[Rfam]
Rfam assigns this 191-nucleotide RNA from Rouxiella badensis to the family "Lysine riboswitch aptamer". The match comes from Rfam's covariance-model search (71 bits). Rfam describes the family as follows. Riboswitches are metabolite binding domains within certain messenger RNAs that serve as precision sensors for their corresponding targets. Taxonomically the source falls in Rouxiella (Bacteria, Pseudomonadati, Pseudomonadota, Enterobacterales).

RNA sequence: UAAGCCAGAAGAGGCGCGUCGCCCAGGCAAUGUAUCGGAGGAACCGUAUCCGACGAAGGUGCAUUAUGGGGUGCGACGCCGAGGUCAGACACCCAACGGUUGGGAAAAGAUCGACUACAGGGGCUGAAUCCUCUGGGUUGUCACCGCUAUAGCUCGAUGAGCUAUUGGCAUGGUGGGGCGCUUCUGGGUGU
Numbered sequence: 001u002a003a004g005c006c007a008g009a010a011g012a013g014g015c016g017c018g019u020c021g022c023c024c025a026g027g028c029a030a031u032g033u034a035u036c037g038g039a040g041g042a043a044c045c046g047u048a049u050c051c052g053a054c055g056a057a058g059g060u061g062c063a064u065u066a067u068g069g070g071g072u073g074c075g076a077c078g079c080c081g082a083g084g085u086c087a088g089a090c091a092c093c094c095a096a097c098g099g100u101u102g103g104g105a106a107a108a109g110a111u112c113g114a115c116u117a118c119a120g121g122g123g124c125u126g127a128a129u130c131c132u133c134u135g136g137g138u139u140g141u142c143a144c145c146g147c148u149a150u151a152g153c154u155c156g157a158u159g160a161g162c163u164a165u166u167g168g169c170a171u172g173g174u175g176g177g178g179c180g181c182u183u184c185u186g187g188g189u190g191u
Stems, first nucleotide, its partner, number of pairs: 006186006016079007024071001030064007083112004113139004118135006141176006
Dot-bracket structure: .....((((((....(((((((.(.....(((((((.....................)))))))......).)))))))...((((......................))))((((.((((((......)))))))))).((((((........................))))))....)))))).....